[Rfam]
RNA: Lysine riboswitch aptamer
Organism: Alkalicella caledoniensis
RNA sequence: UGGUGAGGUAGAGGCGCGGUAAUUAUUAGUAUGUAGUUGAGCUAGGAGUAGCAAAGAUUCUACAGAAAGGAUUUACCGCCGAAGUGGUCACAUGACUCCCCAUGUUUCUGCUGGGUCUACAGUUAAGAGCUGUAGGACUGUCACAAUAAGCUAUCCCAAGUUUGUUGUGUUGCGCUAUCUCAUGU
Numbered sequence: 001u002g003g004u005g006a007g008g009u010a011g012a013g014g015c016g017c018g019g020u021a022a023u024u025a026u027u028a029g030u031a032u033g034u035a036g037u038u039g040a041g042c043u044a045g046g047a048g049u050a051g052c053a054a055a056g057a058u059u060c061u062a063c064a065g066a067a068a069g070g071a072u073u074u075a076c077c078g079c080c081g082a083a084g085u086g087g088u089c090a091c092a093u094g095a096c097u098c099c100c101c102a103u104g105u106u107u108c109u110g111c112u113g114g115g116u117c118u119a120c121a122g123u124u125a126a127g128a129g130c131u132g133u134a135g136g137a138c139u140g141u142c143a144c145a146a147u148a149a150g151c152u153a154u155c156c157c158a159a160g161u162u163u164g165u166u167g168u169g170u171u172g173c174g175c176u177a178u179c180u181c182a183u184g185u
Stems, first nucleotide, its partner, number of pairs: 006180006016079007024071001032064005039058001083112005090105005113139002116136008142169010